[Rfam]
Source information: Bacterial small subunit ribosomal RNA: a 587-nucleotide part of an RNA from Geothermobacter ehrlichii. The source organism's lineage runs through Bacteria, Thermodesulfobacteriota, Desulfuromonadia, Desulfuromonadales and Geothermobacter.
RNA sequence: UGACGGGGGCCCGCACAAGCGGUGGAGCAUGUGGUUUAAUUCGACGCAACGCGAAGAACCUUACCUGGGCUUGACAUCCCGAUCGUAUCCCAUGGAAACAUGGGAGUCAGUUCGGCUGGAUCGGUGACAGGUGCUGCAUGGCUGUCGUCAGCUCGUGUCGUGAGAUGUUGGGUUAAGUCCCGCAACGAGCGCAACCCUUGUCCUUAGUUGCCAUCAUUCAGUUGGGCACUCUAGGGAGACUGCCGGUGUUAAACCGGAGGAAGGUGGGGAUGACGUCAAGUCCUCAUGGCCCUUAUGUCCAGGGCUACACACGUGCUACAAUGGCCGGUACAAAGGGUAGCGAUACCGUGAGGUGGAGCCAAUCCCAAAAAGCCGGUCUCAGUUCGGAUUGGAGUCUGCAACUCGACUCCAUGAAGUUGGAAUCGCUAGUAAUCGCGUAUCAGCAUGACGCGGUGAAUACGUUCCCGGGCCUUGUACACACCGCCCGUCACACCACGGGAGUCGAUUGUACCGGAAAACGGUGGGCUAACCUUCGGGAGGCAGCUGUUUAUGGUAUGGUCGGUAACUGGGGUGAAGUCGUAACAAGG
Numbered sequence: 001u002g003a004c005g006g007g008g009g010c011c012c013g014c015a016c017a018a019g020c021g022g023u024g025g026a027g028c029a030u031g032u033g034g035u036u037u038a039a040u041u042c043g044a045c046g047c048a049a050c051g052c053g054a055a056g057a058a059c060c061u062u063a064c065c066u067g068g069g070c071u072u073g074a075c076a077u078c079c080c081g082a083u084c085g086u087a088u089c090c091c092a093u094g095g096a097a098a099c100a101u102g103g104g105a106g107u108c109a110g111u112u113c114g115g116c117u118g119g120a121u122c123g124g125u126g127a128c129a130g131g132u133g134c135u136g137c138a139u140g141g142c143u144g145u146c147g148u149c150a151g152c153u154c155g156u157g158u159c160g161u162g163a164g165a166u167g168u169u170g171g172g173u174u175a176a177g178u179c180c181c182g183c184a185a186c187g188a189g190c191g192c193a194a195c196c197c198u199u200g201u202c203c204u205u206a207g208u209u210g211c212c213a214u215c216a217u218u219c220a221g222u223u224g225g226g227c228a229c230u231c232u233a234g235g236g237a238g239a240c241u242g243c244c245g246g247u248g249u250u251a252a253a254c255c256g257g258a259g260g261a262a263g264g265u266g267g268g269g270a271u272g273a274c275g276u277c278a279a280g281u282c283c284u285c286a287u288g289g290c291c292c293u294u295a296u297g298u299c300c301a302g303g304g305c306u307a308c309a310c311a312c313g314u315g316c317u318a319c320a321a322u323g324g325c326c327g328g329u330a331c332a333a334a335g336g337g338u339a340g341c342g343a344u345a346c347c348g349u350g351a352g353g354u355g356g357a358g359c360c361a362a363u364c365c366c367a368a369a370a371a372g373c374c375g376g377u378c379u380c381a382g383u384u385c386g387g388a389u390u391g392g393a394g395u396c397u398g399c400a401a402c403u404c405g406a407c408u409c410c411a412u413g414a415a416g417u418u419g420g421a422a423u424c425g426c427u428a429g430u431a432a433u434c435g436c437g438u439a440u441c442a443g444c445a446u447g448a449c450g451c452g453g454u455g456a457a458u459a460c461g462u463u464c465c466c467g468g469g470c471c472u473u474g475u476a477c478a479c480a481c482c483g484c485c486c487g488u489c490a491c492a493c494c495a496c497g498g499g500a501g502u503c504g505a506u507u508g509u510a511c512c513g514g515a516a517a518a519c520g521g522u523g524g525g526c527u528a529a530c531c532u533u534c535g536g537g538a539g540g541c542a543g544c545u546g547u548u549u550a551u552g553g554u555a556u557g558g559u560c561g562g563u564a565a566c567u568g569g570g571g572u573g574a575a576g577u578c579g580u581a582a583c584a585a586g587g
Base pairs, nucleotide, nucleotide: 001478002477003475004474005473007472008471009470010469011468012467013466015462016461019426020425021424022423023422024319026317027316028315029314030313031312032311033310034308035307040055041054042053043052064303065302066301067300068299069298070297077127078126079124080123081122082121083120088105089104090103091102092101093100094099107119108118109117110116130292131291133290134289135288136287139286140285141281142280143279144277146275147274151190152189153188154187155186156185157166158165159164169182170181171180172179196269197268198267199266201237202236203235204234205233206232207231211226212225215224216223240260241259243257244256245255246254247253323378324377325376326375327374328373329372335366336365337364340359341358345354346353347352385416390411391410392409393408394407395406396405432454433453434452435451436450437449438448481586483583486579487578491573492572493571494570496568497567498566501563502562503561504560505559506558507557508556509555510554511553512552517548518547519546520545521544522543525541526540527539530537531536